SAM riboswitch aptamer (S box leader): a 105-nucleotide RNA sequence from Psychrobacillus sp. FJAT-21963.
[Rfam]
RNA sequence: UUCUUAUCAAGAGAAGCUGAGGGACUGGCCCUGUGAAGCUUCAGCAACCAGCCGUUUGGUCAGGUGCUAAUUCCAGCAGAUGCUUAUGUGUCUGAUAGAUGAGAA
Numbered sequence: 001u002u003c004u005u006a007u008c009a010a011g012a013g014a015a016g017c018u019g020a021g022g023g024a025c026u027g028g029c030c031c032u033g034u035g036a037a038g039c040u041u042c043a044g045c046a047a048c049c050a051g052c053c054g055u056u057u058g059g060u061c062a063g064g065u066g067c068u069a070a071u072u073c074c075a076g077c078a079g080a081u082g083c084u085u086a087u088g089u090g091u092c093u094g095a096u097a098g099a100u101g102a103g104a105a
Base pairs, nucleotide, nucleotide: 001105002104003103004102005101006100007099008098013042014041015040016039017038021031022030023029025076026075027074028073043068044067045066046065048064049063051060052059053058072097077094078093079092080091081090082089

Background: Rfam links the family to the GO term regulation of gene expression. The base pairs follow the family's consensus structure, which is taken from published work.